[Rfam]
RNA sequence: ACGUCACGACAGGGGAGCGCGCAAGCGCUGAGAGUGCGGCCCACCGCAGACCCUCACACCUGAUCCGGUUCGCACCGGCGUAGGGAGUCGAGUUCUCACGCAC
Numbered sequence: 001a002c003g004u005c006a007c008g009a010c011a012g013g014g015g016a017g018c019g020c021g022c023a024a025g026c027g028c029u030g031a032g033a034g035u036g037c038g039g040c041c042c043a044c045c046g047c048a049g050a051c052c053c054u055c056a057c058a059c060c061u062g063a064u065c066c067g068g069u070u071c072g073c074a075c076c077g078g079c080g081u082a083g084g085g086a087g088u089c090g091a092g093u094u095c096u097c098a099c100g101c102a103c
Base pairs, nucleotide, nucleotide: 007090008089009088010087011054012053013052014051017028018027019026020025035048036047037046038045039044059084060083061082062081065078066077067076068075
RNA: TPP riboswitch aptamer (THI element)